[Rfam]
The family of this 134-nucleotide RNA sequence from Candidula unifasciata is "Small Cajal body specific RNA 8".
Pairs were carried over by alignment from the consensus structure, which is taken from published work.
Rfam describes the family as follows. scaRNAs are a specific class of small nuclear RNAs which localise to the Cajal bodies and guide the modification of RNA polymerase II transcribed spliceosomal RNAs U1, U2, U4, U5 and U12. U92 belong to the H/ACA box class of guide RNAs as it has the predicted hairpin-hinge-hairpin-tail structure, conserved H/ACA-box motifs and is found associated with GAR1.
The literature on the family includes a 2002 paper in EMBO J by Darzacq et al., "Cajal body-specific small nuclear RNAs: a novel class of 2'-O-methylation and pseudouridylation guide RNAs".
Nucleotides: 134
Base pairs, nucleotide, nucleotide: 002063003062004061005060006059007058015050016049017048018047022043072128073127074126075125076124077123078122086113087112088111091108092107093106
Number, partner (000 for none) and nucleotide at each position: 001000u002063g003062g004061a005060a006059a007058c008000u009000a010000g011000a012000u013000a014000c015050a016049a017048g018047a019000c020000u021000g022043g023000c024000u025000u026000a027000c028000a029000g030000u031000a032000a033000u034000g035000a036000a037000g038000c039000a040000u041000u042000a043022c044000c045000c046000g047018u048017c049016u050015u051000c052000a053000c054000u055000a056000u057000a058007g059006u060005u061004u062003c063002c064000u065000a066000a067000a068000u069000u070000a071000u072128u073127u074126g075125c076124u077123u078122u079000c080000u081000g082000a083000u084000g085000a086113c087112c088111u089000u090000a091108g092107u093106g094000g095000g096000g097000u098000c099000a100000a101000g102000g103000u104000u105000a106093c107092a108091c109000u110000g111088a112087g113086g114000a115000c116000a117000g118000a119000u120000a121000c122078g123077a124076a125075g126074c127073a128072a129000a130000c131000a132000u133000u134000a
Rfam 15.1 lists 955 matches to the family in 741 species.